Shown here is a 53-nucleotide RNA sequence, a member of the family "eL15-Euryarchaeota ribosomal protein leader". The sequence is in the family's curated seed alignment. On this family, see Eckert and Weinberg, BMC Microbiol 2020: "Discovery of 20 novel ribosomal leader candidates in bacteria and archaea".
RNA sequence: CGGGAUAAAAUCCCGUUGGAAUGUGAUCUUUAAAGAAAAGAUUGAACCAUGAA
Numbered sequence: 001c002g003g004g005a006u007a008a009a010a011u012c013c014c015g016u017u018g019g020a021a022u023g024u025g026a027u028c029u030u031u032a033a034a035g036a037a038a039a040g041a042u043u044g045a046a047c048c049a050u051g052a053a
Stems, first nucleotide, its partner, number of pairs: 001015005017049003025043007